[Rfam]
RNA sequence: AAUAGGAGAAUGACAAAUCGGAUUUUUUCUCCUGAUUUUCAACCUUUUUCUCUUAAAAAAAAUUAAAUUCAACUAAAAAUGCUAAAAAUCAAGAGGAAAAAAAUAUGAUUUGUCAUUCUCCUAUU
Numbered sequence: 001a002a003u004a005g006g007a008g009a010a011u012g013a014c015a016a017a018u019c020g021g022a023u024u025u026u027u028u029c030u031c032c033u034g035a036u037u038u039u040c041a042a043c044c045u046u047u048u049u050c051u052c053u054u055a056a057a058a059a060a061a062a063u064u065a066a067a068u069u070c071a072a073c074u075a076a077a078a079a080u081g082c083u084a085a086a087a088a089u090c091a092a093g094a095g096g097a098a099a100a101a102a103a104u105a106u107g108a109u110u111u112g113u114c115a116u117u118c119u120c121c122u123a124u125u
Stems, first nucleotide, its partner, number of pairs: 001125020022104001023102005029095003033091007041083001045079004
Rfam assigns this 125-nucleotide RNA sequence from Gossypium mustelinum to the family "MIR7504 microRNA precursor family". The family has 8 seed sequences and 7,343 matches in Rfam 15.1. Rfam links the family to the GO terms miRNA-mediated post-transcriptional gene silencing and RISC complex. The base pairs follow the family's consensus structure, which was predicted with RNAalifold.